[Rfam]
Nucleotides: 138
Base pairs, nucleotide, nucleotide: 011124012123013122014121018034019033020032021031022030023029035119036118037117038116039115040114045055046054056104057103058102064079065078066077067076082098083097084096085095
Number, partner (000 for none) and nucleotide at each position: 001000a002000a003000u004000c005000a006000u007000a008000c009000u010000a011124c012123g013122c014121u015000u016000a017000a018034u019033u020032c021031u022030u023029u024000g025000g026000a027000u028000u029023a030022a031021a032020g033019a034018a035119g036118c037117g038116g039115g040114g041000g042000a043000a044000c045055c046054a047000a048000g049000u050000u051000u052000u053000c054046u055045g056104g057103g058102g059000u060000g061000a062000g063000u064079a065078c066077a067076c068000u069000u070000u071000u072000u073000u074000u075000u076067g077066u078065g079064u080000u081000a082098g083097g084096g085095u086000u087000a088000a089000c090000u091000u092000u093000c094000a095085a096084c097083c098082c099000g100000a101000a102058u103057c104056c105000g106000u107000c108000a109000g110000c111000u112000a113000a114040c115039u116038u117037c118036g119035u120000c121014a122013g123012c124011g125000u126000a127000g128000a129000a130000a131000g132000a133000a134000a135000a136000u137000g138000a
This 138-nucleotide RNA sequence from Paenibacillus sp. yr247 belongs to the Rfam family "c-di-AMP riboswitch aptamer (ydaO/yuaA leader)". The match comes from Rfam's covariance-model search (98 bits).